This 35-nucleotide RNA sequence belongs to the Rfam family "DUF805b RNA".
The family's consensus secondary structure is taken from published work.
It is one of the family's seed sequences.
By type it is a cis-regulatory element.
RNA sequence: ACAGGCGGUGCUGAAAACCUGAAAUAGAGUAGGCA
Numbered sequence: 001a002c003a004g005g006c007g008g009u010g011c012u013g014a015a016a017a018c019c020u021g022a023a024a025u026a027g028a029g030u031a032g033g034c035a
Base pairs, nucleotide, nucleotide: 002021003020004019005018010034011033012032